[Rfam]
RNA sequence: UACACCGCAGACGAUUGAAACAUCGUUAUAUCCGCCCUUAUGGGUUUUGGUGAGUGGAAAUAGUUCCGGUCAGGAGCUGCACGUAGCAGGAAAUGUCCGAAAGCGGCGAGGAGAUAGAA
Numbered sequence: 001u002a003c004a005c006c007g008c009a010g011a012c013g014a015u016u017g018a019a020a021c022a023u024c025g026u027u028a029u030a031u032c033c034g035c036c037c038u039u040a041u042g043g044g045u046u047u048u049g050g051u052g053a054g055u056g057g058a059a060a061u062a063g064u065u066c067c068g069g070u071c072a073g074g075a076g077c078u079g080c081a082c083g084u085a086g087c088a089g090g091a092a093a094u095g096u097c098c099g100a101a102a103g104c105g106g107c108g109a110g111g112a113g114a115u116a117g118a119a
Stems, first nucleotide, its partner, number of pairs: 003056003010027006032050002035044003065112003076107005086098001089094001
RNA: RT-4 RNA